Background: Rfam assigns this 77-nucleotide RNA from Acipenser ruthenus to the family "mir-17 microRNA precursor family". The match comes from Rfam's covariance-model search (77 bits). The family's consensus secondary structure was predicted with RNAalifold. This family represents the microRNA (miRNA) precursor mir-17, family, which includes mir-20, mir-91, and mir-103. miRNAs are transcribed as ~70nt precursors (modelled here) and subsequently processed by the Dicer enzyme to give a ~22nt product. Rfam links the family to the GO terms miRNA-mediated post-transcriptional gene silencing and RISC complex.

RNA sequence: UCAGCAGUAUUAAAGUGCUUAUAGUGCAGGUAGUGUUUCGAGAUCUACUGCAGUAUGAGCACUUGAAGUACUUCUAG
Numbered sequence: 001u002c003a004g005c006a007g008u009a010u011u012a013a014a015g016u017g018c019u020u021a022u023a024g025u026g027c028a029g030g031u032a033g034u035g036u037u038u039c040g041a042g043a044u045c046u047a048c049u050g051c052a053g054u055a056u057g058a059g060c061a062c063u064u065g066a067a068g069u070a071c072u073u074c075u076a077g
Base pairs, nucleotide, nucleotide: 004074006072007071009069010068011067013064014063015062016061017060018059019058020057021056022055023054025052026051027050029049030048031047032046033045